[Rfam]
RNA sequence: UAUGGAUAAUUGAGAGCCAGGGUGCGAAGCUGGAAGGUUCGACUGCGACCGCGAGGGAGCAGAACGACCGCGCACAGCGCGUGUCGGCCCGAAGGGCGAGGCCGCAGGCCGAGUAAUCCUGGUCCCCCAGCCA
Numbered sequence: 001u002a003u004g005g006a007u008a009a010u011u012g013a014g015a016g017c018c019a020g021g022g023u024g025c026g027a028a029g030c031u032g033g034a035a036g037g038u039u040c041g042a043c044u045g046c047g048a049c050c051g052c053g054a055g056g057g058a059g060c061a062g063a064a065c066g067a068c069c070g071c072g073c074a075c076a077g078c079g080c081g082u083g084u085c086g087g088c089c090c091g092a093a094g095g096g097c098g099a100g101g102c103c104g105c106a107g108g109c110c111g112a113g114u115a116a117u118c119c120u121g122g123u124c125c126c127c128c129a130g131c132c133a
Base pairs, nucleotide, nucleotide: 016123017122018121019120020119021118023116033097038093039092040091041090046057065086066085067084068083

The record is a 133-nucleotide RNA from Spiribacter curvatus, which matches "RtT RNA" in Rfam. About the family: This family represents a bacterial cis-regulatory element known as RtT RNA. The exact function of RtT is unknown although it is thought that it may be involved in changing the cellular response in relation to amino acid starvation. The source organism's lineage runs through Bacteria, Pseudomonadati, Pseudomonadota, Gammaproteobacteria and Spiribacter. A reference for the family is Bosl and Kersten (1991), "A novel RNA product of the tyrT operon of Escherichia coli", Nucleic Acids Res. Rfam links the family to the GO term cellular response to amino acid starvation. Rfam 15.1 lists 651 matches to the family in 204 species.